[Rfam]
The record is an 83-nucleotide RNA sequence from Haemonchus placei, which matches "mir-5918 microRNA precursor family" in Rfam. Rfam links the family to the GO terms RISC complex and miRNA-mediated post-transcriptional gene silencing. The organism belongs to Haemonchus, within Eukaryota.
RNA sequence: CUGGUAGGAUAACGGGUAACACGAUGGAAGACAAGCUUUCUCACCUGCUCGGCUUCUCAUCGUGUUACCCAGCAUCUUAUCGC
Numbered sequence: 001c002u003g004g005u006a007g008g009a010u011a012a013c014g015g016g017u018a019a020c021a022c023g024a025u026g027g028a029a030g031a032c033a034a035g036c037u038u039u040c041u042c043a044c045c046u047g048c049u050c051g052g053c054u055u056c057u058c059a060u061c062g063u064g065u066u067a068c069c070c071a072g073c074a075u076c077u078u079a080u081c082g083c
Base pairs, nucleotide, nucleotide: 002082003081004080005079006078007077008076009075010074014070015069016068017067018066019065020064021063022062023061024060025059026057027056028055029054030053032051034049035048036047